[Rfam]
Rfam assigns this 135-nucleotide RNA sequence from Neomonachus schauinslandi to the family "U11 spliceosomal RNA". For this family Rfam cites "Additional low-abundance human small nuclear ribonucleoproteins: U11, U12, etc" (Montzka and Steitz, Proc Natl Acad Sci U S A, 1988).
RNA sequence: AAAAAAGGGCUGUAUCAUGAAUGGCACAUGUAGGGCAGCUGCAUUGCUCUUCCUGUGGAAAUGACAUCAAGAGAUUUCAGAAUCAUCAAUUUUUUGGUACCUGAGCAGCUGGUGAUCGUUGGUCCUGGUGCCCCA
Numbered sequence: 001a002a003a004a005a006a007g008g009g010c011u012g013u014a015u016c017a018u019g020a021a022u023g024g025c026a027c028a029u030g031u032a033g034g035g036c037a038g039c040u041g042c043a044u045u046g047c048u049c050u051u052c053c054u055g056u057g058g059a060a061a062u063g064a065c066a067u068c069a070a071g072a073g074a075u076u077u078c079a080g081a082a083u084c085a086u087c088a089a090u091u092u093u094u095u096g097g098u099a100c101c102u103g104a105g106c107a108g109c110u111g112g113u114g115a116u117c118g119u120u121g122g123u124c125c126u127g128g129u130g131c132c133c134c135a
Base pairs, nucleotide, nucleotide: 008084009083011081013026015024016023017022027055028054030052032050033049034048035047036046037045038044056079057078058077059076060075062073103133105131106130108129109128110127111126112125114124115123116122117121